[Rfam]
RNA sequence: CGAGUCGGCAGGGCGGUCGCGUCGGCGGGGUCACCCGCCGCCGAGGAAAGUCCGGACUCCACAGGGCAGGGUGGUUGCUAACGGCAACCAGGGGCGACCUUCGGGACAGUGCCACAGAGAACAGACCGCCACCGGCGCUCGCGCCGGCGGUAAGGGUGAAACGGUGGUGUAAGAGACCACCAGCGCCCCCGGUGACGGGGGCGGCUAGGCAAACCCCACCCGGAGCAAGGCCAAGAGGGCGUCCCCCAGGGGGCGCCUGCGCAGGCGUUCGAGGGCUGCCCGCCCGAGCCUGCGGGUAGGCCGCACGAGCCCGGCGGCGACGUCGGGCCUAGAUGGAUGACCGCCCAGCGGUGCGCCGAGAGGCGCCCGUGGACAGGAUCCGGCUUACAAGCCGGCUCCUCCG
Numbered sequence: 001c002g003a004g005u006c007g008g009c010a011g012g013g014c015g016g017u018c019g020c021g022u023c024g025g026c027g028g029g030g031u032c033a034c035c036c037g038c039c040g041c042c043g044a045g046g047a048a049a050g051u052c053c054g055g056a057c058u059c060c061a062c063a064g065g066g067c068a069g070g071g072u073g074g075u076u077g078c079u080a081a082c083g084g085c086a087a088c089c090a091g092g093g094g095c096g097a098c099c100u101u102c103g104g105g106a107c108a109g110u111g112c113c114a115c116a117g118a119g120a121a122c123a124g125a126c127c128g129c130c131a132c133c134g135g136c137g138c139u140c141g142c143g144c145c146g147g148c149g150g151u152a153a154g155g156g157u158g159a160a161a162c163g164g165u166g167g168u169g170u171a172a173g174a175g176a177c178c179a180c181c182a183g184c185g186c187c188c189c190c191g192g193u194g195a196c197g198g199g200g201g202c203g204g205c206u207a208g209g210c211a212a213a214c215c216c217c218a219c220c221c222g223g224a225g226c227a228a229g230g231c232c233a234a235g236a237g238g239g240c241g242u243c244c245c246c247c248a249g250g251g252g253g254c255g256c257c258u259g260c261g262c263a264g265g266c267g268u269u270c271g272a273g274g275g276c277u278g279c280c281c282g283c284c285c286g287a288g289c290c291u292g293c294g295g296g297u298a299g300g301c302c303g304c305a306c307g308a309g310c311c312c313g314g315c316g317g318c319g320a321c322g323u324c325g326g327g328c329c330u331a332g333a334u335g336g337a338u339g340a341c342c343g344c345c346c347a348g349c350g351g352u353g354c355g356c357c358g359a360g361a362g363g364c365g366c367c368c369g370u371g372g373a374c375a376g377g378a379u380c381c382g383g384c385u386u387a388c389a390a391g392c393c394g395g396c397u398c399c400u401c402c403g
Stems, first nucleotide, its partner, number of pairs: 002398008011388001012345007020043002023040006048386003052383005057225004064281004069221005074088005089103001090101004104216002109214002111210003126155002128151003132147006163181006183205001184203008229302004261293006273285004309328008

About this RNA
A member of the RNA family "Bacterial RNase P class A" from Actinosynnema mirum, 403 nucleotides long. Rfam classes the family as a ribozyme. Ribonuclease P (RNase P) is a ubiquitous endoribonuclease, found in archaea, bacteria and eukarya as well as chloroplasts and mitochondria.